[Rfam]
RNA sequence: AGCGGGUUCUGCGGGAGCCCCUCGGGGGCUGAGAAGGCUUGAGCGCCGACCGCCACACCUGAUGCGGGUCAUGCCGCCGGAGGAAAGGACGUGCCGGUGAAU
Numbered sequence: 001a002g003c004g005g006g007u008u009c010u011g012c013g014g015g016a017g018c019c020c021c022u023c024g025g026g027g028g029c030u031g032a033g034a035a036g037g038c039u040u041g042a043g044c045g046c047c048g049a050c051c052g053c054c055a056c057a058c059c060u061g062a063u064g065c066g067g068g069u070c071a072u073g074c075c076g077c078c079g080g081a082g083g084a085a086a087g088g089a090c091g092u093g094c095c096g097g098u099g100a101a102u
Stems, first nucleotide, its partner, number of pairs: 006090005011053004017029005036047003058083003064077004
Dot-bracket structure: .....(((((((((..(((((...)))))......(((......)))..))))....(((...((((......))))...)))..)))))............

Shown here is a 102-nucleotide RNA sequence from Citricoccus muralis, a member of the family "TPP riboswitch aptamer (THI element)". The organism belongs to Citricoccus, within Bacteria. The match comes from Rfam's covariance-model search (60 bits).